[Rfam]
The family of this 71-nucleotide RNA from Spermophilus dauricus is "tRNA". NCBI's taxonomy places the organism under Eukaryota, Euteleostomi, Tetrapoda, Sciuromorpha, Spermophilus. The family's consensus secondary structure is taken from published work.
RNA sequence: GGGGUUGUAGCUCAGUGGUAGAGCACCUGCCCUGCAUGCAUGAGGUCCUGGGUUCAAUCCCCAAUACCCCA
Numbered sequence: 001g002g003g004g005u006u007g008u009a010g011c012u013c014a015g016u017g018g019u020a021g022a023g024c025a026c027c028u029g030c031c032c033u034g035c036a037u038g039c040a041u042g043a044g045g046u047c048c049u050g051g052g053u054u055c056a057a058u059c060c061c062c063a064a065u066a067c068c069c070c071a
Stems, first nucleotide, its partner, number of pairs: 001070005010024004026042001028040003049063004